A member of the RNA family "Enterobacterial sRNA STnc180" from Kosakonia cowanii, 212 nucleotides long.
Pairs were carried over by alignment from the consensus structure, which was predicted with RNAalifold.
RNA sequence: UUAAUUAAUACACAGCAUAAAUGAAUUGAGUAAAAACUCAGUUUCGAUGAAUAGAUUCACGAGGUAAAUUUUUAUGAUUAAUAACCUUGGUAUGAAAUAUUGGUCAUGGCUGACAGCGUUCUCGGUUUCCGCCCUCAUCUGGGGUGAGCUGGUCUGGCUGGCCCUGCAGUAACGAAUUGAAAAACCUCGCGUCGGCGGGGUUUUUUAUUAUC
Numbered sequence: 001u002u003a004a005u006u007a008a009u010a011c012a013c014a015g016c017a018u019a020a021a022u023g024a025a026u027u028g029a030g031u032a033a034a035a036a037c038u039c040a041g042u043u044u045c046g047a048u049g050a051a052u053a054g055a056u057u058c059a060c061g062a063g064g065u066a067a068a069u070u071u072u073u074a075u076g077a078u079u080a081a082u083a084a085c086c087u088u089g090g091u092a093u094g095a096a097a098u099a100u101u102g103g104u105c106a107u108g109g110c111u112g113a114c115a116g117c118g119u120u121c122u123c124g125g126u127u128u129c130c131g132c133c134c135u136c137a138u139c140u141g142g143g144g145u146g147a148g149c150u151g152g153u154c155u156g157g158c159u160g161g162c163c164c165u166g167c168a169g170u171a172a173c174g175a176a177u178u179g180a181a182a183a184a185c186c187u188c189g190c191g192u193c194g195g196c197g198g199g200g201u202u203u204u205u206u207a208u209u210a211u212c
Stems, first nucleotide, its partner, number of pairs: 010065002015060001026041005104143002108134001111131002115127002145161001147159001149157002183202008

The source organism's lineage runs through Bacteria, Pseudomonadota, Enterobacteriaceae, Kosakonia and Kosakonia cowanii. By type it is a small RNA. The match comes from Rfam's covariance-model search (88 bits).